A member of the RNA family "MIR2587 microRNA precursor family" from Medicago truncatula, 99 nucleotides long. For this family Rfam cites "Genome-wide Medicago truncatula small RNA analysis revealed novel microRNAs and isoforms differentially regulated in roots and nodules" (Lelandais-Briere et al., Plant Cell, 2009). Lineage of the source: Eukaryota > Streptophyta > eudicotyledons > Fabaceae > Medicago. Rfam 15.1 lists 242 matches to the family in 3 species. A search with the family's covariance model found it, with a score of 80 bits.
RNA sequence: GUGUCAUGGUCAUUGUUGACCGUUCAUAGAAACCCUGCAAUUGCAAUGCAUUGCAACUUGUGUGGGGUUCAUAUAACGGUCAACAUAGACCCUUUGCAU
Numbered sequence: 001g002u003g004u005c006a007u008g009g010u011c012a013u014u015g016u017u018g019a020c021c022g023u024u025c026a027u028a029g030a031a032a033c034c035c036u037g038c039a040a041u042u043g044c045a046a047u048g049c050a051u052u053g054c055a056a057c058u059u060g061u062g063u064g065g066g067g068u069u070c071a072u073a074u075a076a077c078g079g080u081c082a083a084c085a086u087a088g089a090c091c092c093u094u095u096g097c098a099u
Stems, first nucleotide, its partner, number of pairs: 001099004006094001008091004014085011026074003031069009043057001